[Rfam]
RNA sequence: AUACGUUAGUCGGGGAGCCGUAAGGCUGAGACCACAGAGUGGGACCCGUUGAACCUGAUCCAGUUAAUACUGGCGUAGGGAACUAGCAGCAUUGCCCG
Numbered sequence: 001a002u003a004c005g006u007u008a009g010u011c012g013g014g015g016a017g018c019c020g021u022a023a024g025g026c027u028g029a030g031a032c033c034a035c036a037g038a039g040u041g042g043g044a045c046c047c048g049u050u051g052a053a054c055c056u057g058a059u060c061c062a063g064u065u066a067a068u069a070c071u072g073g074c075g076u077a078g079g080g081a082a083c084u085a086g087c088a089g090c091a092u093u094g095c096c097c098g
Stems, first nucleotide, its partner, number of pairs: 006086005011048004017026003033041003054079004060073004
RNA: TPP riboswitch aptamer (THI element)
Organism: Photobacterium halotolerans